[Rfam]
RNA: Small nucleolar RNA U2-19
Organism: Orycteropus afer
RNA sequence: AAUCAAUGAUGAAAAUAGCCAAAUCUGAGCAUCAGAAGAUCUUCCAGUCUACCUGAUGCAUGAUCACUAUAGUUCUGGGA
Dot-bracket structure: ............................(((((...((((......))))....))))).....................